[Rfam]
RNA sequence: CUUCUCUCAACUCUAGACUUGGCUUUACCUGUGUGACCUUCAUAAUUGGGAGAAAGAGAAAAUAUCUCCUUGGGACUACAUAUUGGCCUUUUGGUGGCCUCUCUUUCCUUGAGGGGUACUACUUAC
Numbered sequence: 001c002u003u004c005u006c007u008c009a010a011c012u013c014u015a016g017a018c019u020u021g022g023c024u025u026u027a028c029c030u031g032u033g034u035g036a037c038c039u040u041c042a043u044a045a046u047u048g049g050g051a052g053a054a055a056g057a058g059a060a061a062a063u064a065u066c067u068c069c070u071u072g073g074g075a076c077u078a079c080a081u082a083u084u085g086g087c088c089u090u091u092u093g094g095u096g097g098c099c100u101c102u103c104u105u106u107c108c109u110u111g112a113g114g115g116g117u118a119c120u121a122c123u124u125a126c
Stems, first nucleotide, its partner, number of pairs: 002058004007053002011050003015046001021038002024035001026033002066116005072110003080104001082102001085099004
A member of the RNA family "Small nucleolar RNA SNORA64/SNORA10 family" from Carlito syrichta, 126 nucleotides long. Rfam describes the family as follows. This family belongs to the H/ACA class of small nucleolar RNAs (snoRNAs) which act as guides in the the modification of uridines to pseudouridines. This family includes the human snoRNAs U64 and ACA10 and mouse MBI-29. By type it is an H/ACA-box small nucleolar RNA. The match comes from Rfam's covariance-model search (53 bits). The family is grouped with related families in Rfam's "SNORA64 clan". The literature on the family includes a 1999 paper in EMBO J by Narayanan et al., "Nucleolar localization signals of box H/ACA small nucleolar RNAs".